[Rfam]
RNA: L31-Firmicutes ribosomal protein leader
RNA sequence: CUUUGGACACGCAAAGAGGUCCAAGGCGGAAGGAG
Numbered sequence: 001c002u003u004u005g006g007a008c009a010c011g012c013a014a015a016g017a018g019g020u021c022c023a024a025g026g027c028g029g030a031a032g033g034a035g
Stems, first nucleotide, its partner, number of pairs: 001026008